RNA sequence: GCAGCAGGCUGCAAUUGCAGUGCUUCAUCCAGUGGGAGUACUGCCAUUUUCCUGCUGAGAGUAACUCUGUUAAUGCCGCCCUUGGUUCCACCUGCAUGUCGGUGAAACCGUUGUCCUUAACAGGUACAU
Numbered sequence: 001g002c003a004g005c006a007g008g009c010u011g012c013a014a015u016u017g018c019a020g021u022g023c024u025u026c027a028u029c030c031a032g033u034g035g036g037a038g039u040a041c042u043g044c045c046a047u048u049u050u051c052c053u054g055c056u057g058a059g060a061g062u063a064a065c066u067c068u069g070u071u072a073a074u075g076c077c078g079c080c081c082u083u084g085g086u087u088c089c090a091c092c093u094g095c096a097u098g099u100c101g102g103u104g105a106a107a108c109c110g111u112u113g114u115c116c117u118u119a120a121c122a123g124g125u126a127c128a129u
Stems, first nucleotide, its partner, number of pairs: 003056006018043009067123007075115001077113001083110005089104004094099001
RNA: Small nucleolar RNA SNORA69
Organism: Penelope pileata